RNA sequence: AAGGAAGAGUUUGUGGUGGAUGCCUUGGGUCUGAAAGUCGAUGAAGGACGUGAUUACCUGCGAUAAGCCUCGUGGAGCCGGAAAUAUGCUAUGAAACGGGGAUUUCCGAAUGGGGAAACCUAACUAGGGUAAUGCCUAGUUGCCUUGUUCUGAAUUCAUAGGAACUUGAGUGAGACACCUUGUGAACUGAAACAUCUUAGUAGCAAGAGGAAGAGAAAAUAAACAAUGAUUUCUUUAGUAGCGGCGAGCGAACGAGAAAGAGCCCAAACCCAGCAAUGGGGGUUGUAGGACGAUCUACAUGAAGUUACAAAACUUAAUGAUAGCAGAAGCUUUUGGGAAGAAGCGGCAUAGAGGGUGAUACCCCCGUAUGUGAAAUUGUUAAGUCUUCUGAUCGUAUCCUGAGUAGGGCGGGGCACGUGGAACCCUGUCUGAAUCUGCCGGGACCACCCGGUAAGGCUAAAUACUAAUCAGACACCGAUAGUGAACUAGUACCGUGAGGGAAAGGUGAAAAGAACCCCGAGAGGGGAGUGAAAUAGAUUCUGAAACCACUUACUUACAAU
Numbered sequence: 001a002a003g004g005a006a007g008a009g010u011u012u013g014u015g016g017u018g019g020a021u022g023c024c025u026u027g028g029g030u031c032u033g034a035a036a037g038u039c040g041a042u043g044a045a046g047g048a049c050g051u052g053a054u055u056a057c058c059u060g061c062g063a064u065a066a067g068c069c070u071c072g073u074g075g076a077g078c079c080g081g082a083a084a085u086a087u088g089c090u091a092u093g094a095a096a097c098g099g100g101g102a103u104u105u106c107c108g109a110a111u112g113g114g115g116a117a118a119c120c121u122a123a124c125u126a127g128g129g130u131a132a133u134g135c136c137u138a139g140u141u142g143c144c145u146u147g148u149u150c151u152g153a154a155u156u157c158a159u160a161g162g163a164a165c166u167u168g169a170g171u172g173a174g175a176c177a178c179c180u181u182g183u184g185a186a187c188u189g190a191a192a193c194a195u196c197u198u199a200g201u202a203g204c205a206a207g208a209g210g211a212a213g214a215g216a217a218a219a220u221a222a223a224c225a226a227u228g229a230u231u232u233c234u235u236u237a238g239u240a241g242c243g244g245c246g247a248g249c250g251a252a253c254g255a256g257a258a259a260g261a262g263c264c265c266a267a268a269c270c271c272a273g274c275a276a277u278g279g280g281g282g283u284u285g286u287a288g289g290a291c292g293a294u295c296u297a298c299a300u301g302a303a304g305u306u307a308c309a310a311a312a313c314u315u316a317a318u319g320a321u322a323g324c325a326g327a328a329g330c331u332u333u334u335g336g337g338a339a340g341a342a343g344c345g346g347c348a349u350a351g352a353g354g355g356u357g358a359u360a361c362c363c364c365c366g367u368a369u370g371u372g373a374a375a376u377u378g379u380u381a382a383g384u385c386u387u388c389u390g391a392u393c394g395u396a397u398c399c400u401g402a403g404u405a406g407g408g409c410g411g412g413g414c415a416c417g418u419g420g421a422a423c424c425c426u427g428u429c430u431g432a433a434u435c436u437g438c439c440g441g442g443a444c445c446a447c448c449c450g451g452u453a454a455g456g457c458u459a460a461a462u463a464c465u466a467a468u469c470a471g472a473c474a475c476c477g478a479u480a481g482u483g484a485a486c487u488a489g490u491a492c493c494g495u496g497a498g499g500g501a502a503a504g505g506u507g508a509a510a511a512g513a514a515c516c517c518c519g520a521g522a523g524g525g526g527a528g529u530g531a532a533a534u535a536g537a538u539u540c541u542g543a544a545a546c547c548a549c550u551u552a553c554u555u556a557c558a559a560u
Stems, first nucleotide, its partner, number of pairs: 007555004013549004022540001023505002027476002029473006036465002038173002046107003049062003068101006077089002112121003122141007143170001144168001147165005178209001179207005189196002219227002230461001231258005241249002261458004269280004287400003291394005309387002312384010323371003329344005347351001353365003406430008437452005492499002515526004

Source information
Rfam assigns this 560-nucleotide part of an RNA from Mycoplasmopsis fermentans to the family "Bacterial large subunit ribosomal RNA". Rfam's curators put it in the seed alignment. The base pairs follow the family's consensus structure, which is taken from published work.